RNA sequence: AAUUUCAGCUGAAAAAGUCAUGAACAUAAAAGUUGUAGAGCUCAUCAAGACAUACAACUUUUAUUUUGGUCAUUUCUUCAUCCGAUAAAGUGAUAGUAACAUUGUUCACAAAGUUUACAUAUCUCUCUUAUAGUUUAUAGAACCAAAUGAGAAAAAUGUAAAUUUUGUAAACAAUGUUACUAUCACUUCGUCAGAUGAAGAAACGACCAAAAUAAAAGUUAUAGAUCUUGAUGAGUUAUACAACUUCGUUGUUGAUGACUUUUUCAAUUGAAAUC
Numbered sequence: 001a002a003u004u005u006c007a008g009c010u011g012a013a014a015a016a017g018u019c020a021u022g023a024a025c026a027u028a029a030a031a032g033u034u035g036u037a038g039a040g041c042u043c044a045u046c047a048a049g050a051c052a053u054a055c056a057a058c059u060u061u062u063a064u065u066u067u068g069g070u071c072a073u074u075u076c077u078u079c080a081u082c083c084g085a086u087a088a089a090g091u092g093a094u095a096g097u098a099a100c101a102u103u104g105u106u107c108a109c110a111a112a113g114u115u116u117a118c119a120u121a122u123c124u125c126u127c128u129u130a131u132a133g134u135u136u137a138u139a140g141a142a143c144c145a146a147a148u149g150a151g152a153a154a155a156a157u158g159u160a161a162a163u164u165u166u167g168u169a170a171a172c173a174a175u176g177u178u179a180c181u182a183u184c185a186c187u188u189c190g191u192c193a194g195a196u197g198a199a200g201a202a203a204c205g206a207c208c209a210a211a212a213u214a215a216a217a218g219u220u221a222u223a224g225a226u227c228u229u230g231a232u233g234a235g236u237u238a239u240a241c242a243a244c245u246u247c248g249u250u251g252u253u254g255a256u257g258a259c260u261u262u263u264u265c266a267a268u269u270g271a272a273a274u275c
Stems, first nucleotide, its partner, number of pairs: 014262008023253002026250001030246008039237004044232007053223001056220012069207003073203003077199005084192003088188005094182006101175006108168005114162002117159004122154001131145001133143004
Annotation
A member of the RNA family "MIR821 microRNA precursor family" from Oryza sativa, 275 nucleotides long. Gene Ontology terms of the family: RISC complex and miRNA-mediated post-transcriptional gene silencing. The family's consensus secondary structure was predicted with RNAalifold. A search with the family's covariance model found it, with a score of 254 bits.